[Rfam]
RNA sequence: UCCAUCGUGAGGUGGAAUCUGAAGGAAGCUGGAUGUGAGGAAUAUACCAACUCACGGGCCAAUCUUUGGUCUGACGAACAGAAAUCUCCUAUGAGGUCGUGCCUGUGGGUUAGACAGCGACCCCUGUUUUAGCCCCAUUACUACACGGAAUCAUGCGUGAUUAAUGAGGCGGCUUGGUUGGGAGGAAGAAACUGUG
Numbered sequence: 001u002c003c004a005u006c007g008u009g010a011g012g013u014g015g016a017a018u019c020u021g022a023a024g025g026a027a028g029c030u031g032g033a034u035g036u037g038a039g040g041a042a043u044a045u046a047c048c049a050a051c052u053c054a055c056g057g058g059c060c061a062a063u064c065u066u067u068g069g070u071c072u073g074a075c076g077a078a079c080a081g082a083a084a085u086c087u088c089c090u091a092u093g094a095g096g097u098c099g100u101g102c103c104u105g106u107g108g109g110u111u112a113g114a115c116a117g118c119g120a121c122c123c124c125u126g127u128u129u130u131a132g133c134c135c136c137a138u139u140a141c142u143a144c145a146c147g148g149a150a151u152c153a154u155g156c157g158u159g160a161u162u163a164a165u166g167a168g169g170c171g172g173c174u175u176g177g178u179u180g181g182g183a184g185g186a187a188g189a190a191a192c193u194g195u196g
Stems, first nucleotide, its partner, number of pairs: 001016006051196001053194002059188001063183004068178001069174001071172003085169004090164001096161003100157003104153002107135004113128004
Rfam assigns this 196-nucleotide sequence to the family "Group II catalytic intron D1-D4-3". The literature on the family includes a 2003 paper in Crit Rev Biochem Mol Biol by Lehmann and Schmidt, "Group II introns: structure and catalytic versatility of large natural ribozymes".